[Rfam]
RNA: Small nucleolar RNA SNORD66
Organism: Erpetoichthys calabaricus
RNA sequence: CUUCAGUGAUGAUCUCGCUUUAGUGCCAUUGUGUCUGGGCCACUGAUAACUAGUGAUGGAUCUGAGGAUCUGAGAAG
Number, nucleotide and partner (000 for none) at each position: 001c077002u076003u075004c074005a000006g000007u000008g000009a000010u000011g000012a000013u000014c000015u000016c000017g000018c000019u000020u000021u000022a000023g000024u000025g000026c000027c000028a000029u000030u000031g000032u000033g000034u000035c000036u000037g000038g000039g000040c000041c000042a000043c000044u000045g000046a000047u000048a000049a000050c000051u000052a000053g000054u000055g000056a000057u000058g000059g000060a000061u000062c000063u000064g000065a000066g000067g000068a000069u000070c000071u000072g000073a000074g004075a003076a002077g001